[Rfam]
RNA sequence: ACUAGCACUGACGUGCUAGGCUGAGUUAUGCCGUACCUUCGGUACU
Number, nucleotide and partner (000 for none) at each position: 001a000002c019003u018004a017005g016006c015007a014008c013009u000010g000011a000012c000013g008014u007015g006016c005017u004018a003019g002020g000021c000022u000023g000024a000025g000026u000027u000028a000029u000030g000031c000032c000033g045034u044035a043036c042037c041038u000039u000040c000041g037042g036043u035044a034045c033046u000

A member of the RNA family "Acido-Lenti-1 RNA" from Lentisphaera araneosa, 46 nucleotides long. The base pairs follow the family's consensus structure, which is taken from published work. Taxonomically the source falls in Lentisphaera araneosa (Bacteria, Lentisphaerota, Lentisphaeria, Lentisphaera). It is one of the family's seed sequences. Rfam 15.1 lists 2,607 matches to the family in 171 species.